[Rfam]
RNA sequence: GUCGCGGCGGUCUCUAAUUCGCUUGGUGCAGGUCGGGAACCGCUUCGCCGCCGCCGGGAUUUGUGUGUUGUGCGAUUUAUUGGCUGGCGAAUCGGGUUCCGGCUUGCAUCAACUGAAUCGGAGACCGCGGUGAAU
Numbered sequence: 001g002u003c004g005c006g007g008c009g010g011u012c013u014c015u016a017a018u019u020c021g022c023u024u025g026g027u028g029c030a031g032g033u034c035g036g037g038a039a040c041c042g043c044u045u046c047g048c049c050g051c052c053g054c055c056g057g058g059a060u061u062u063g064u065g066u067g068u069u070g071u072g073c074g075a076u077u078u079a080u081u082g083g084c085u086g087g088c089g090a091a092u093c094g095g096g097u098u099c100c101g102g103c104u105u106g107c108a109u110c111a112a113c114u115g116a117a118u119c120g121g122a123g124a125c126c127g128c129g130g131u132g133a134a135u
Base pairs, nucleotide, nucleotide: 013122014121017118018117019116020115023112024111025110026109027108028107029106030105031104032103034101035100036099037098038097040095041094
RNA: MIR168 microRNA precursor family
Organism: Actinidia chinensis